[Rfam]
RNA sequence: UCAAGCACAUCUCCUUAUCACUUUUCCAGUCCAGCUAUUUAUCAAAUGCCUGUUGGACGGAGAACUGAUAAGGGUAUGUGUUUGG
Numbered sequence: 001u002c003a004a005g006c007a008c009a010u011c012u013c014c015u016u017a018u019c020a021c022u023u024u025u026c027c028a029g030u031c032c033a034g035c036u037a038u039u040u041a042u043c044a045a046a047u048g049c050c051u052g053u054u055g056g057a058c059g060g061a062g063a064a065c066u067g068a069u070a071a072g073g074g075u076a077u078g079u080g081u082u083u084g085g
Stems, first nucleotide, its partner, number of pairs: 012074009022064006030056002
Dot-bracket structure: ...........(((((((((.((((((..((.......................))..)))))).)))))))))...........

Shown here is an 85-nucleotide RNA sequence from Kryptolebias marmoratus, a member of the family "mir-184 microRNA precursor family". Its family is annotated with gene silencing by miRNA and RISC complex in the Gene Ontology. The source organism's lineage runs through Eukaryota, Eumetazoa, Gnathostomata, Rivulidae and Kryptolebias. On this family, see Chen et al., Genes Dev 2005: "The developmental miRNA profiles of zebrafish as determined by small RNA cloning".